[Rfam]
RNA sequence: AGCAGCACCGAGAGAGCGACUCGGGAGCUGGCAGAAACCAGUCCCUAUGGCCUCAGAAGACUCCUUAGGGACUGUUUUUGCGCCUUCAUAUCGUCUUCCACUAACAAGAAAGAUUCCGUAGUCUGCAGCUUGAUUCGAGAUCAUUCGUCAGGCUUGAAAUGCGGAGUCGAAUCGCUCGGGAAACGUCGGCGCGACUGAUGUCUCUCUCGGCUCCGCGGUCAGU
Numbered sequence: 001a002g003c004a005g006c007a008c009c010g011a012g013a014g015a016g017c018g019a020c021u022c023g024g025g026a027g028c029u030g031g032c033a034g035a036a037a038c039c040a041g042u043c044c045c046u047a048u049g050g051c052c053u054c055a056g057a058a059g060a061c062u063c064c065u066u067a068g069g070g071a072c073u074g075u076u077u078u079u080g081c082g083c084c085u086u087c088a089u090a091u092c093g094u095c096u097u098c099c100a101c102u103a104a105c106a107a108g109a110a111a112g113a114u115u116c117c118g119u120a121g122u123c124u125g126c127a128g129c130u131u132g133a134u135u136c137g138a139g140a141u142c143a144u145u146c147g148u149c150a151g152g153c154u155u156g157a158a159a160u161g162c163g164g165a166g167u168c169g170a171a172u173c174g175c176u177c178g179g180g181a182a183a184c185g186u187c188g189g190c191g192c193g194a195c196u197g198a199u200g201u202c203u204c205u206c207u208c209g210g211c212u213c214c215g216c217g218g219u220c221a222g223u
Stems, first nucleotide, its partner, number of pairs: 003030004008024005031081007040073008049064002161216010178206004183201007

Shown here is a 223-nucleotide sequence, a member of the family "Cyano-2 RNA". It is annotated as a small RNA.